[Rfam]
RNA sequence: UUUUGUAUUUUUCCACAGCUUUCUUGAACUGCAUAUAAUUAUGAUUUUCACUAAUGAGGAAAUUAAUUCAUGUCGUUGCGGUUCAAUAAAGCUGUGGGAAGAUAUAGAUA
Numbered sequence: 001u002u003u004u005g006u007a008u009u010u011u012u013c014c015a016c017a018g019c020u021u022u023c024u025u026g027a028a029c030u031g032c033a034u035a036u037a038a039u040u041a042u043g044a045u046u047u048u049c050a051c052u053a054a055u056g057a058g059g060a061a062a063u064u065a066a067u068u069c070a071u072g073u074c075g076u077u078g079c080g081g082u083u084c085a086a087u088a089a090a091g092c093u094g095u096g097g098g099a100a101g102a103u104a105u106a107g108a109u110a
Base pairs, nucleotide, nucleotide: 003107004106005105006104007103013097014096015095017093018092019091020090021089022088024086025085026084027083029081030080031079032078033077